[Rfam]
RNA sequence: GAAGCGUCAACCCGGCACGACACUGUCGGUCGGACCGGGACUGUCUCACCGGAAGGUGAGGCUGCC
Numbered sequence: 001g002a003a004g005c006g007u008c009a010a011c012c013c014g015g016c017a018c019g020a021c022a023c024u025g026u027c028g029g030u031c032g033g034a035c036c037g038g039g040a041c042u043g044u045c046u047c048a049c050c051g052g053a054a055g056g057u058g059a060g061g062c063u064g065c066c
Base pairs, nucleotide, nucleotide: 011039012038013037014036015035018028019027020026021025043062044061045060046059047058048057049056050055

A member of the RNA family "Transposase-2 RNA" from Rhodococcus sp. CX, 66 nucleotides long.